[Rfam]
RNA sequence: AUAUUUUCAACGGCACUUUUUAAAAAAGGAGGACAUCAUGCCAACACUACAAGGUAAAACACAGUAACGAUUUGGCACGAUGUCAGCUCACGGACAAGUGUACAAAUUUAAUUCACUUGUCCGAAUGCUUGAAUUUAAGACCUAGCAUUCGCUAGGUUUUUUUAUUCCUAUUCGGACAAU
Number, nucleotide and partner (000 for none) at each position: 001a000002u137003a136004u000005u000006u133007u132008c131009a130010a000011c000012g129013g128014c127015a126016c028017u027018u026019u025020u024021u000022a000023a000024a020025a019026a018027a017028g016029g089030a088031g087032g084033a083034c082035a081036u080037c079038a000039u077040g076041c075042c074043a073044a072045c000046a000047c000048u000049a000050c000051a000052a000053g000054g062055u061056a000057a000058a000059a000060c000061a055062c054063a000064g000065u000066a000067a000068c000069g000070a000071u000072u044073u043074g042075g041076c040077a039078c000079g037080a036081u035082g034083u033084c032085a000086g000087c031088u030089c029090a000091c123092g122093g121094a120095c119096a118097a117098g116099u115100g114101u000102a000103c000104a000105a000106a000107u000108u000109u000110a000111a000112u000113u000114c100115a099116c098117u097118u096119g095120u094121c093122c092123g091124a000125a000126u015127g014128c013129u012130u009131g008132a007133a006134u000135u000136u003137a002138a159139g158140a157141c156142c155143u154144a153145g152146c151147a000148u000149u000150c000151g146152c145153u144154a143155g142156g141157u140158u139159u138160u000161u000162u000163u000164a000165u000166u176167c175168c174169u000170a000171u000172u000173c000174g168175g167176a166177c000178a000179a000180u000